[Rfam]
RNA sequence: AUAUCAUCAAGAGUAGUGGAGGGACAGGCCCAACGAAGCUCAGCAACCGCCUAGUUAUAAGGAAAGGUGCUAAUUCCUGCCAGAGUUUUCUGGAGAGAUGUGAU
Numbered sequence: 001a002u003a004u005c006a007u008c009a010a011g012a013g014u015a016g017u018g019g020a021g022g023g024a025c026a027g028g029c030c031c032a033a034c035g036a037a038g039c040u041c042a043g044c045a046a047c048c049g050c051c052u053a054g055u056u057a058u059a060a061g062g063a064a065a066g067g068u069g070c071u072a073a074u075u076c077c078u079g080c081c082a083g084a085g086u087u088u089u090c091u092g093g094a095g096a097g098a099u100g101u102g103a104u
Base pairs, nucleotide, nucleotide: 001104002103005100006099007098008097013041015040016039017038021031022030023029025079026078027077028076042071043070044069045068047067048066050062051061052060075096080093081092082091083090084089
This 104-nucleotide sequence from Halanaerobacter jeridensis belongs to the Rfam family "SAM riboswitch aptamer (S box leader)".
Its family is annotated with regulation of gene expression in the Gene Ontology.
It scores 85 bits against the family's covariance model.